[Rfam]
RNA sequence: GCACUUGUCAAGAACUUUCUCUGUGACCUGCGUGUACUUAAAAGCCGCAUCACAGUCUGAGUUCUUGCUGAGCGC
Numbered sequence: 001g002c003a004c005u006u007g008u009c010a011a012g013a014a015c016u017u018u019c020u021c022u023g024u025g026a027c028c029u030g031c032g033u034g035u036a037c038u039u040a041a042a043a044g045c046c047g048c049a050u051c052a053c054a055g056u057c058u059g060a061g062u063u064c065u066u067g068c069u070g071a072g073c074g075c
Base pairs, nucleotide, nucleotide: 004072005071006070009067010066011065012064013063014062015061016060017059021055022054023053024052025051026050030048031047032046
Dot-bracket structure: ...(((..(((((((((...((((((...(((.............))).))))))...)))))))))..)))...

Record summary: mir-11 microRNA precursor family: a 75-nucleotide sequence from Drosophila yakuba. The family has 20 seed sequences and 138 matches in Rfam 15.1. Gene Ontology terms of the family: RISC complex, negative regulation of cell death and cellular response to gamma radiation. Taxonomically the source falls in Sophophora (Eukaryota, Pterygota, Acalyptratae, Ephydroidea). On this family, see Chen et al., Insect Mol Biol 2010: "Next-generation small RNA sequencing for microRNAs profiling in the honey bee Apis mellifera". Clan: mir-6 clan.